[Rfam]
Annotation: Shown here is a 58-nucleotide RNA from Cryobacterium roopkundense, a member of the family "msiK RNA". The base pairs follow the family's consensus structure, which is taken from published work. It scores 62 bits against the family's covariance model. The family has 120 seed sequences and 1,374 matches in Rfam 15.1.
RNA sequence: GACAAAUCCUAUUCACAACGGAUCGUCCGGCACGUUCCUGCCGGUGAAGGAGAUUAAU
Numbered sequence: 001g002a003c004a005a006a007u008c009c010u011a012u013u014c015a016c017a018a019c020g021g022a023u024c025g026u027c028c029g030g031c032a033c034g035u036u037c038c039u040g041c042c043g044g045u046g047a048a049g050g051a052g053a054u055u056a057a058u
Base pairs, nucleotide, nucleotide: 009050010049012048013047014046015045027044028043029042030041031040032039